[Rfam]
RNA: Glycine riboswitch aptamer
RNA sequence: AUGAAGAAUGCGGGAGAGACCCUAACCGGGCGCCGAAGGAGCAAGCGGGUAUAUGGCCUGUAUACUCGUGAAACUCUCAGGCAAAAGGACCGCAUUC
Number, nucleotide and partner (000 for none) at each position: 001a000002u000003g000004a000005a000006g097007a096008a095009u094010g093011c092012g091013g090014g000015a000016g000017a000018g000019a000020c030021c029022c028023u000024a000025a000026c000027c000028g022029g021030g020031c000032g082033c081034c080035g078036a077037a000038g000039g076040a075041g074042c000043a000044a000045g069046c068047g067048g066049g065050u064051a063052u062053a061054u000055g000056g000057c000058c000059u000060g000061u053062a052063u051064a050065c049066u048067c047068g046069u045070g000071a000072a000073a000074c041075u040076c039077u036078c035079a000080g034081g033082c032083a000084a000085a000086a000087g000088g000089a000090c013091c012092g011093c010094a009095u008096u007097c006